The family of this 291-nucleotide part of an RNA from Mitosporidium daphniae is "Eukaryotic large subunit ribosomal RNA". The organism belongs to Mitosporidium, within Eukaryota.
[Rfam]
RNA sequence: CGAUUGAGACCAGUGUGUUGACGGUGAAGCUCAGGUGUGUGCCGUGGCGGUGGUGUCCAUCACCGUUGCGCGCAUGCACUGCAUGUUGCGCCGCCGACAGGUCGAUGUCCAUUUGGGGGCCCAGAAAGGCCCGGAAGAAAGGUGGCUCAUCUUCGGAUGCAGCUUUAUAGUCUACCGGUGAUACCAUGGGACUCUGGAUGGAUCAGCGAAAUGAUGAUGGUGGUGUUUCACCACCAUCCACUCACUCGCCCAUCGACGAAAUGGUCUUAAACGACCCGUCUUGAAACACGG
Number, nucleotide and partner (000 for none) at each position: 001c273002g272003a000004u270005u269006g268007a267008g266009a265010c264011c263012a262013g000014u000015g000016u000017g000018u000019u000020g098021a000022c096023g095024g094025u093026g092027a000028a000029g000030c000031u000032c000033a000034g000035g000036u000037g000038u000039g000040u000041g000042c000043c000044g000045u000046g000047g000048c000049g000050g000051u000052g000053g000054u000055g000056u000057c000058c000059a000060u000061c000062a000063c000064c000065g000066u000067u000068g000069c000070g000071c000072g000073c000074a000075u000076g000077c000078a000079c000080u000081g000082c000083a000084u000085g000086u000087u000088g000089c000090g000091c000092c026093g025094c024095c023096g022097a000098c020099a000100g000101g000102u000103c255104g254105a253106u252107g251108u000109c000110c000111a000112u000113u000114u000115g000116g000117g000118g000119g000120c000121c000122c000123a000124g000125a000126a000127a000128g000129g000130c000131c000132c000133g000134g000135a000136a000137g000138a000139a000140a000141g000142g000143u000144g000145g000146c000147u000148c000149a000150u000151c000152u000153u000154c000155g000156g000157a000158u000159g000160c000161a000162g000163c000164u000165u000166u000167a000168u000169a000170g000171u000172c000173u000174a000175c000176c000177g000178g000179u000180g000181a000182u000183a000184c000185c000186a000187u000188g000189g000190g000191a000192c000193u000194c000195u000196g000197g000198a000199u000200g000201g000202a000203u000204c000205a000206g000207c000208g000209a000210a000211a000212u000213g000214a000215u000216g000217a000218u000219g000220g000221u000222g000223g000224u000225g000226u000227u000228u000229c000230a000231c000232c000233a000234c000235c000236a000237u000238c000239c000240a000241c000242u000243c000244a000245c000246u000247c000248g000249c000250c000251c107252a106253u105254c104255g103256a000257c000258g000259a000260a000261a000262u012263g011264g010265u009266c008267u007268u006269a005270a004271a000272c002273g001274a000275c000276c291277c290278g289279u288280c000281u000282u000283g000284a000285a000286a000287c000288a279289c278290g277291g276